[Rfam]
RNA sequence: AAGGCUGCAACGAUGAAGCAAUAUAUUUUUGUGGACUAGAGUUUCUAGUCUGGGUUUUCCUAGAAAUUAAAGACUAACCCUUGGCUGUCUGAGUAUUCUU
Numbered sequence: 001a002a003g004g005c006u007g008c009a010a011c012g013a014u015g016a017a018g019c020a021a022u023a024u025a026u027u028u029u030u031g032u033g034g035a036c037u038a039g040a041g042u043u044u045c046u047a048g049u050c051u052g053g054g055u056u057u058u059c060c061u062a063g064a065a066a067u068u069a070a071a072g073a074c075u076a077a078c079c080c081u082u083g084g085c086u087g088u089c090u091g092a093g094u095a096u097u098c099u100u
Stems, first nucleotide, its partner, number of pairs: 001100004006095003042072003049065001050063005
Dot-bracket structure: ((((.(((.................................(((....((((((....))))).)....)))....................))).))))
RNA: Small nucleolar RNA Z157/R69/R10
Organism: Hibiscus trionum